[Rfam]
RNA sequence: ACGACUGCAUGUAACUGGCGAACGCGGCGAACCGCGGGGGAGCAUGCGGAUCGGUACGCCGUACGCCUGGGCAGAGGUA
Numbered sequence: 001a002c003g004a005c006u007g008c009a010u011g012u013a014a015c016u017g018g019c020g021a022a023c024g025c026g027g028c029g030a031a032c033c034g035c036g037g038g039g040g041a042g043c044a045u046g047c048g049g050a051u052c053g054g055u056a057c058g059c060c061g062u063a064c065g066c067c068u069g070g071g072c073a074g075a076g077g078u079a
Stems, first nucleotide, its partner, number of pairs: 003051001005049008015039002017067004024035004058072003
RNA: ZMP/ZTP riboswitch aptamer (pfl RNA motif)